[Rfam]
Shown here is a 194-nucleotide RNA sequence from Xylaria flabelliformis, a member of the family "U2 spliceosomal RNA".
A reference for the family is Zwieb (1997), "The uRNA database", Nucleic Acids Res.
Rfam 15.1 lists 71,512 matches to the family in 2,642 species.
Pairs were carried over by alignment from the consensus structure, which is taken from published work.
RNA sequence: UUAGCUCUCUUUGCCUUUUGGCUUAGAUCAAGUGUAGUAUCUGUUCUUUUCAGUUUAAUCUCUGAAAGAGUCCUACUGGACUCAAUCGUGAUUAUUCUAAUUUUUAACCCCCGGAAGCGCAUCCUCUGUGCUUGCGCAUGAUCGCCUCCACCGUGUCCCUGGUAUUACACUGCCUCCAGGCGACGCGAACCUUG
Numbered sequence: 001u002u003a004g005c006u007c008u009c010u011u012u013g014c015c016u017u018u019u020g021g022c023u024u025a026g027a028u029c030a031a032g033u034g035u036a037g038u039a040u041c042u043g044u045u046c047u048u049u050u051c052a053g054u055u056u057a058a059u060c061u062c063u064g065a066a067a068g069a070g071u072c073c074u075a076c077u078g079g080a081c082u083c084a085a086u087c088g089u090g091a092u093u094a095u096u097c098u099a100a101u102u103u104u105u106a107a108c109c110c111c112c113g114g115a116a117g118c119g120c121a122u123c124c125u126c127u128g129u130g131c132u133u134g135c136g137c138a139u140g141a142u143c144g145c146c147u148c149c150a151c152c153g154u155g156u157c158c159c160u161g162g163u164a165u166u167a168c169a170c171u172g173c174c175u176c177c178a179g180g181c182g183a184c185g186c187g188a189a190c191c192u193u194g
Stems, first nucleotide, its partner, number of pairs: 008027003013022003048067006068083006113149003117145003127138004152187006158180005
Rfam describes the family as follows. U2 is a small nuclear RNA (snRNA) component of the spliceosome (involved in pre-mRNA splicing). Complementary binding between U2 snRNA (in an area lying towards the 5' end but 3' to hairpin I) and the branchpoint sequence (BPS) of the intron results the bulging out of an unpaired adenosine, on the BPS, which initiates a nucleophilic attack at the intronic 5' splice site, thus starting the first of two transesterification reactions that mediate splicing.